[Rfam]
RNA sequence: AUUAACAAAUUUGAAGGGACGAUGGGUGGACUAUGAUUAUAUAAUCUUAUUUCUUGCAUAAUAUUUGCUGCUUCAUGCAGAAAAAAAUAUUUUAUACGCAAACGGAAAUAGGAUUAGUCUGCCCAUUAUUCUUACAAUACGUACGGUAUUCUCUACAUAGCACUGAAUAUGUAGCGUUUUUCGUAUAUGCUUUAUGGUCAGCAACAUCCUUCCGUAUUAUACGGAGGGAUUUUUUU
Numbered sequence: 001a002u003u004a005a006c007a008a009a010u011u012u013g014a015a016g017g018g019a020c021g022a023u024g025g026g027u028g029g030a031c032u033a034u035g036a037u038u039a040u041a042u043a044a045u046c047u048u049a050u051u052u053c054u055u056g057c058a059u060a061a062u063a064u065u066u067g068c069u070g071c072u073u074c075a076u077g078c079a080g081a082a083a084a085a086a087a088u089a090u091u092u093u094a095u096a097c098g099c100a101a102a103c104g105g106a107a108a109u110a111g112g113a114u115u116a117g118u119c120u121g122c123c124c125a126u127u128a129u130u131c132u133u134a135c136a137a138u139a140c141g142u143a144c145g146g147u148a149u150u151c152u153c154u155a156c157a158u159a160g161c162a163c164u165g166a167a168u169a170u171g172u173a174g175c176g177u178u179u180u181u182c183g184u185a186u187a188u189g190c191u192u193u194a195u196g197g198u199c200a201g202c203a204a205c206a207u208c209c210u211u212c213c214g215u216a217u218u219a220u221a222c223g224g225a226g227g228g229a230u231u232u233u234u235u236u
Stems, first nucleotide, its partner, number of pairs: 016131003023125004029119003042116013056097001058095004144183003151176001153174005206230010